[Rfam]
RNA: Lysine riboswitch aptamer
Organism: Bacillus taeanensis
RNA sequence: UGAUGGGGUAGAGGAGCAGUGUUCAUAAGUACAUGUUGUGAGGAUGACAACGGUGAUCAACAUGAAAAGGGAACAGUGCCGAAACAGGGUUCACUGUCACGUGACUGCUGUUGGGGUUAUUGCCGAAUAGGAAUAACACUGUCACUGCAAGAGGAAGCUUUGCUUGUGGUGGAGAACUACUUAUCGU
Number, nucleotide and partner (000 for none) at each position: 001u000002g000003a000004u000005g000006g182007g181008g180009u179010a178011g177012a000013g000014g000015a000016g079017c078018a077019g000020u075021g074022u073023u072024c071025a000026u000027a000028a000029g000030u000031a000032c064033a063034u062035g061036u060037u059038g058039u000040g000041a000042g000043g000044a000045u000046g000047a000048c000049a000050a000051c000052g000053g000054u000055g000056a000057u000058c038059a037060a036061c035062a034063u033064g032065a000066a000067a000068a000069g000070g000071g024072a023073a022074c021075a020076g000077u018078g017079c016080c000081g000082a000083a112084a111085c110086a109087g108088g000089g106090u000091u104092c103093a102094c101095u000096g000097u000098c000099a000100c000101g094102u093103g092104a091105c000106u089107g000108c087109u086110g085111u084112u083113g140114g139115g000116g137117u136118u135119a134120u133121u132122g000123c130124c000125g000126a000127a000128u000129a000130g123131g000132a121133a120134u119135a118136a117137c116138a000139c114140u113141g000142u172143c171144a170145c169146u168147g167148c166149a165150a164151g163152a000153g000154g000155a000156a000157g000158c000159u000160u000161u000162g000163c151164u150165u149166g148167u147168g146169g145170u144171g143172g142173a000174g000175a000176a000177c011178u010179a009180c008181u007182u006183a000184u000185c000186g000187u000